[Rfam]
RNA sequence: GUUCCUCAUGCACCGAAGUUGGACCGUGGGGGAUGCGAGAAACAGGUCCAACGUGGGGGAACCAUCGCGGCCGCAAGGCCUUGGGGUGAAGCCUGGGAAACCGGGCCGGGCUCUCCUGCCCGAAUCCGACAGCUUACCUCGCAGGUCAACAAGGAGAACUA
Numbered sequence: 001g002u003u004c005c006u007c008a009u010g011c012a013c014c015g016a017a018g019u020u021g022g023a024c025c026g027u028g029g030g031g032g033a034u035g036c037g038a039g040a041a042a043c044a045g046g047u048c049c050a051a052c053g054u055g056g057g058g059g060a061a062c063c064a065u066c067g068c069g070g071c072c073g074c075a076a077g078g079c080c081u082u083g084g085g086g087u088g089a090a091g092c093c094u095g096g097g098a099a100a101c102c103g104g105g106c107c108g109g110g111c112u113c114u115c116c117u118g119c120c121c122g123a124a125u126c127c128g129a130c131a132g133c134u135u136a137c138c139u140c141g142c143a144g145g146u147c148a149a150c151a152a153g154g155a156g157a158a159c160u161a
Stems, first nucleotide, its partner, number of pairs: 012146003018052008053142006063083002084127003092105004108121004